Shown here is a 112-nucleotide RNA sequence from Alkalicoccobacillus porphyridii, a member of the family "epsC RNA". The organism belongs to Alkalicoccobacillus, within Bacteria.

[Rfam]
RNA sequence: GGUUAUUCCUUUCUGACCCGUUAUCAUCGGAAGGACUCGGUUACUUUGUGGGUUUUCAUAACCUUAGGCGCGUGUCGCCGUUGAAGUAAUGUGAGGAGAGGUUAGAUGCCUA
Numbered sequence: 001g002g003u004u005a006u007u008c009c010u011u012u013c014u015g016a017c018c019c020g021u022u023a024u025c026a027u028c029g030g031a032a033g034g035a036c037u038c039g040g041u042u043a044c045u046u047u048g049u050g051g052g053u054u055u056u057c058a059u060a061a062c063c064u065u066a067g068g069c070g071c072g073u074g075u076c077g078c079c080g081u082u083g084a085a086g087u088a089a090u091g092u093g094a095g096g097a098g099a100g101g102u103u104a105g106a107u108g109c110c111u112a
Stems, first nucleotide, its partner, number of pairs: 002019001007035007036095004040090008050064005067079004099111004